[Rfam]
RNA sequence: CGAUGGGGUAGAGGCGCAAAAUUUAUGAGUAGGUUUCGUGAGGAUGACAACGAUGAUCGAAACGCGAAAGGAAAUUUUGCCGAAAUAAAUAUAGAUGUCGGAUCUAUAUUUAUUGGGGUCACCUUGAAUAAGGGUGGCACUGUCAUUAUGAGAGAAAAAUCUCAUAAUGGGGAGCUACAGAUCGU
Numbered sequence: 001c002g003a004u005g006g007g008g009u010a011g012a013g014g015c016g017c018a019a020a021a022u023u024u025a026u027g028a029g030u031a032g033g034u035u036u037c038g039u040g041a042g043g044a045u046g047a048c049a050a051c052g053a054u055g056a057u058c059g060a061a062a063c064g065c066g067a068a069a070g071g072a073a074a075u076u077u078u079g080c081c082g083a084a085a086u087a088a089a090u091a092u093a094g095a096u097g098u099c100g101g102a103u104c105u106a107u108a109u110u111u112a113u114u115g116g117g118g119u120c121a122c123c124u125u126g127a128a129u130a131a132g133g134g135u136g137g138c139a140c141u142g143u144c145a146u147u148a149u150g151a152g153a154g155a156a157a158a159a160u161c162u163c164a165u166a167a168u169g170g171g172g173a174g175c176u177a178c179a180g181a182u183c184g185u
Base pairs, nucleotide, nucleotide: 008178009177010176011175016080017079018078019077020076021075022074023073024072033063034062035061036060037059038058084114085113086112087111088110089109090108091107092106093105094104095103115141116140118138119137120136121135122134123133124132125131143170144169145168146167147166148165149164150163151162152161

Shown here is a 185-nucleotide sequence from Fervidibacillus halotolerans, a member of the family "Lysine riboswitch aptamer". About the family: Riboswitches are metabolite binding domains within certain messenger RNAs that serve as precision sensors for their corresponding targets. Allosteric rearrangement of mRNA structure is mediated by ligand binding, and this results in modulation of gene expression. This family includes riboswitches that sense lysine in a number of genes involved in lysine metabolism, including lysC. The source organism's lineage runs through Bacteria, Bacillati, Caryophanales, Bacillaceae and Fervidibacillus.